This 78-nucleotide sequence from Chiloscyllium punctatum belongs to the Rfam family "mir-2756 microRNA precursor family". It scores 63 bits against the family's covariance model. Pairs were carried over by alignment from the consensus structure, which was predicted with RNAalifold. Its family is annotated with RISC complex and miRNA-mediated post-transcriptional gene silencing in the Gene Ontology.

RNA sequence: AGCACAGCAGGUCAGGCAGCAUCCAAGGAGCAGGAAAACUUUCCUGCUCCUCGGAUGCUGCCUGACCUGCUGUGCUUU
Number, nucleotide and partner (000 for none) at each position: 001a076002g075003c074004a073005c072006a071007g070008c069009a068010g067011g066012u065013c000014a000015g062016g061017c060018a059019g058020c057021a000022u055023c054024c053025a000026a051027g050028g049029a048030g047031c046032a045033g000034g043035a042036a000037a000038a000039c000040u000041u000042u035043c034044c000045u032046g031047c030048u029049c028050c027051u026052c000053g024054g023055a022056u000057g020058c019059u018060g017061c016062c015063u000064g000065a012066c011067c010068u009069g008070c007071u006072g005073u004074g003075c002076u001077u000078u000